[Rfam]
RNA sequence: UUUUUACGCAAUAGGAGAGCAAAUCCGCCGAAUUUAAGCAUAUAAUUAAGCGGAAGAAAAGAAAAUAACAAUGAUUCCUUUAGUAACGGCGAGUGAACAAGGAAAAGCUCAAGCGGAUAAUCUGUGUUACUAGUUCUACUUUGUAGGAUGAAUGCAAAGAAUUGUCGUGUUAUGAAUAUAUAUAAAUUACCUUUUUUCAAUAAAUGUUUAAAUCUAAAUACAGAUUCUACGAAACGAGGUGGAAUGCCUCUCCCUAAGAGGGUGAAAGGCCCGUAGUAAAUUUUGUUUUAGUUUUUAUUGAAAGCAAUAUAUAUAUAAAAAAGAGUCGUGUUCUUUGAGAUUGGAGCACAAAUAUGUGUGAUACAUUUCACAUAAAGCUAAAUAUGUGUAGGAGACCGAUAGCAAACAAGUACCGUGAGGGAAAGAUGAAAUAGUACUCAGGAAUGAGCAAUUAAAUAGUACCUGAAAUCGUUAAGGUGGAAC
Numbered sequence: 001u002u003u004u005u006a007c008g009c010a011a012u013a014g015g016a017g018a019g020c021a022a023a024u025c026c027g028c029c030g031a032a033u034u035u036a037a038g039c040a041u042a043u044a045a046u047u048a049a050g051c052g053g054a055a056g057a058a059a060a061g062a063a064a065a066u067a068a069c070a071a072u073g074a075u076u077c078c079u080u081u082a083g084u085a086a087c088g089g090c091g092a093g094u095g096a097a098c099a100a101g102g103a104a105a106a107g108c109u110c111a112a113g114c115g116g117a118u119a120a121u122c123u124g125u126g127u128u129a130c131u132a133g134u135u136c137u138a139c140u141u142u143g144u145a146g147g148a149u150g151a152a153u154g155c156a157a158a159g160a161a162u163u164g165u166c167g168u169g170u171u172a173u174g175a176a177u178a179u180a181u182a183u184a185a186a187u188u189a190c191c192u193u194u195u196u197u198c199a200a201u202a203a204a205u206g207u208u209u210a211a212a213u214c215u216a217a218a219u220a221c222a223g224a225u226u227c228u229a230c231g232a233a234a235c236g237a238g239g240u241g242g243a244a245u246g247c248c249u250c251u252c253c254c255u256a257a258g259a260g261g262g263u264g265a266a267a268g269g270c271c272c273g274u275a276g277u278a279a280a281u282u283u284u285g286u287u288u289u290a291g292u293u294u295u296u297a298u299u300g301a302a303a304g305c306a307a308u309a310u311a312u313a314u315a316u317a318a319a320a321a322a323g324a325g326u327c328g329u330g331u332u333c334u335u336u337g338a339g340a341u342u343g344g345a346g347c348a349c350a351a352a353u354a355u356g357u358g359u360g361a362u363a364c365a366u367u368u369c370a371c372a373u374a375a376a377g378c379u380a381a382a383u384a385u386g387u388g389u390a391g392g393a394g395a396c397c398g399a400u401a402g403c404a405a406a407c408a409a410g411u412a413c414c415g416u417g418a419g420g421g422a423a424a425g426a427u428g429a430a431a432u433a434g435u436a437c438u439c440a441g442g443a444a445u446g447a448g449c450a451a452u453u454a455a456a457u458a459g460u461a462c463c464u465g466a467a468a469u470c471g472u473u474a475a476g477g478u479g480g481a482a483c
Base pairs, nucleotide, nucleotide: 024055025053026052027051028050035042036041065072066071076103077102078101079100080099086094087093106379107378108377109376113168114167115166116165119162121160122159123158125156126155127154176316177315178314179313183309184308216293217292224283234251236250237249238248239247254258261271262270328349329348330347331346332345333344334343356373357372358371359370360369413420414419437448438447439446440445